[Rfam]
RNA sequence: CGUGCUCGUCUUUCACUCGGAUCGUCCGGCACGUACCUGCCGGUGAAAGGACGCCAUC
Numbered sequence: 001c002g003u004g005c006u007c008g009u010c011u012u013u014c015a016c017u018c019g020g021a022u023c024g025u026c027c028g029g030c031a032c033g034u035a036c037c038u039g040c041c042g043g044u045g046a047a048a049g050g051a052c053g054c055c056a057u058c
Stems, first nucleotide, its partner, number of pairs: 009050007026043006
RNA: msiK RNA